RNA: Archaeal large subunit ribosomal RNA, nucleotides 561 to 630
RNA sequence: AUAGGGCACUUAAGGAGUGAUACCGUUAACUACGGUUGACCGGUGUUCUAUUAUCCGUGUUGAAGAACGG
Numbered sequence: 001a002u003a004g005g006g007c008a009c010u011u012a013a014g015g016a017g018u019g020a021u022a023c024c025g026u027u028a029a030c031u032a033c034g035g036u037u038g039a040c041c042g043g044u045g046u047u048c049u050a051u052u053a054u055c056c057g058u059g060u061u062g063a064a065g066a067a068c069g070g
Base pairs, nucleotide, nucleotide: 001051002050003049004048005047006046007045008044009043014041015040022036023035024034025033026032055070056069057068058067